[Rfam]
RNA sequence: UAUCCCUAUGAUGAUUUAUAAUCAUUAAAGUAGUGGACUGAAUUUCCUUGAAGAAAAUGAAGUCAGAGGGAUU
Numbered sequence: 001u002a003u004c005c006c007u008a009u010g011a012u013g014a015u016u017u018a019u020a021a022u023c024a025u026u027a028a029a030g031u032a033g034u035g036g037a038c039u040g041a042a043u044u045u046c047c048u049u050g051a052a053g054a055a056a057a058u059g060a061a062g063u064c065a066g067a068g069g070g071a072u073u
Stems, first nucleotide, its partner, number of pairs: 002072005